[Rfam]
RNA: Tymovirus/Pomovirus/Furovirus tRNA-like 3' UTR element
Organism: Tymovirus brassicae
RNA sequence: UUAGCUCGCCAGUUAGCGAGGUCUGUCCCCACACGACAGAUAAUCGGGUGCAACUCCCGCCCCUUCUCCGAGGGUCA
Numbered sequence: 001u002u003a004g005c006u007c008g009c010c011a012g013u014u015a016g017c018g019a020g021g022u023c024u025g026u027c028c029c030c031a032c033a034c035g036a037c038a039g040a041u042a043a044u045c046g047g048g049u050g051c052a053a054c055u056c057c058c059g060c061c062c063c064u065u066c067u068c069c070g071a072g073g074g075u076c077a
Stems, first nucleotide, its partner, number of pairs: 005020005012051001021041007045059004060074003067077001070076002